Annotation
Rfam assigns this 111-nucleotide sequence from Dioscorea zingiberensis to the family "MIR396 microRNA precursor family". Rfam links the family to the GO terms RISC complex and miRNA-mediated post-transcriptional gene silencing. A search with the family's covariance model found it, with a score of 80 bits. The organism belongs to Dioscorea, within Eukaryota.

[Rfam]
RNA sequence: CCUUAUAGUCUUCCACAGCUUUCUUGAACUGCAUCCAUCCUUCCUCUUUCUUGGGAGGUAACACUCUGAAUCUGAAUUGCAGUUCAAUGAAGCUGUGGGAAAUUAUAGGCA
Dot-bracket structure: ..(((((.....(((.((((((.((((.(((((............................................))))).)))).)))))).))).....)))))...